RNA: Group II catalytic intron D1-D4-6
RNA sequence: AAAGCGCUCGACAUCGAAGGAGUAGCGAUCCACGGUGGCCCCGAGCCAUGCGUCGACGACCCGUGAGGGCGUGGCGAAGCGUUGGACAGGGGUACGUGCAGGCCGGGCUAUGGAGCCGCGAAAUCCCCACUUCGGGGUGCCGACGUUGUUGGAGCGGCGGAAGGCAACACUGCUGGCGGCGUUAUCGCGAGUCGCCAGUGGGCCCCGCGCGGUCGGAGAACC
Numbered sequence: 001a002a003a004g005c006g007c008u009c010g011a012c013a014u015c016g017a018a019g020g021a022g023u024a025g026c027g028a029u030c031c032a033c034g035g036u037g038g039c040c041c042c043g044a045g046c047c048a049u050g051c052g053u054c055g056a057c058g059a060c061c062c063g064u065g066a067g068g069g070c071g072u073g074g075c076g077a078a079g080c081g082u083u084g085g086a087c088a089g090g091g092g093u094a095c096g097u098g099c100a101g102g103c104c105g106g107g108c109u110a111u112g113g114a115g116c117c118g119c120g121a122a123a124u125c126c127c128c129a130c131u132u133c134g135g136g137g138u139g140c141c142g143a144c145g146u147u148g149u150u151g152g153a154g155c156g157g158c159g160g161a162a163g164g165c166a167a168c169a170c171u172g173c174u175g176g177c178g179g180c181g182u183u184a185u186c187g188c189g190a191g192u193c194g195c196c197a198g199u200g201g202g203c204c205c206c207g208c209g210c211g212g213u214c215g216g217a218g219a220a221c222c
Stems, first nucleotide, its partner, number of pairs: 012037005019031003023190001025188002039092004045087001046085003049081002051076005057071002060069003113214001115213006133207006139165003144159004170201011